The record is a 35-nucleotide RNA from Pipistrellus kuhlii, which matches "Iron response element I" in Rfam. For this family Rfam cites "Identification of the iron-responsive element for the translational regulation of human ferritin mRNA" (Hentze et al., Science, 1987). The base pairs follow the family's consensus structure, which is taken from published work. A search with the family's covariance model found it, with a score of 37 bits. Taxonomically the source falls in Pipistrellus (Eukaryota, Eumetazoa, Gnathostomata, Laurasiatheria). By type it is a cis-regulatory element.
RNA sequence: UCUUCCCUUGCUUCAACAGUGUUUGGAUGGAAAGG
Numbered sequence: 001u002c003u004u005c006c007c008u009u010g011c012u013u014c015a016a017c018a019g020u021g022u023u024u025g026g027a028u029g030g031a032a033a034g035g
Stems, first nucleotide, its partner, number of pairs: 001035004007030002010028001012027005017021001